[Rfam]
RNA sequence: UACUAUUUAUUGAAAGGGCUGAGGGUGGACAGUGAUUAACUAAUCUUAAUUUCCGAUGAAAUUCAUUUUUUACUCGAACGGAAAACGGGAUUAGUCUGUCCAUUUUUACUCAAACGUAAAGCAGCCCUAUUGUGCGGGGUUUCUUUGUGUUUAUUUCCUGACUAAUCCUUCCGUUCUAUAACGGAGGGAUUUUUUU
Numbered sequence: 001u002a003c004u005a006u007u008u009a010u011u012g013a014a015a016g017g018g019c020u021g022a023g024g025g026u027g028g029a030c031a032g033u034g035a036u037u038a039a040c041u042a043a044u045c046u047u048a049a050u051u052u053c054c055g056a057u058g059a060a061a062u063u064c065a066u067u068u069u070u071u072a073c074u075c076g077a078a079c080g081g082a083a084a085a086c087g088g089g090a091u092u093a094g095u096c097u098g099u100c101c102a103u104u105u106u107u108a109c110u111c112a113a114a115c116g117u118a119a120a121g122c123a124g125c126c127c128u129a130u131u132g133u134g135c136g137g138g139g140u141u142u143c144u145u146u147g148u149g150u151u152u153a154u155u156u157c158c159u160g161a162c163u164a165a166u167c168c169u170u171c172c173g174u175u176c177u178a179u180a181a182c183g184g185a186g187g188g189a190u191u192u193u194u195u196u
Base pairs, nucleotide, nucleotide: 016107017106018105023101024100025099028096029095030094041093042092043091044090045089046088047087050084051083052082053081059071060070061069114150115149116148121143123141124140125139126138127137164191165190166189167188168187169186170185171184172183173182174181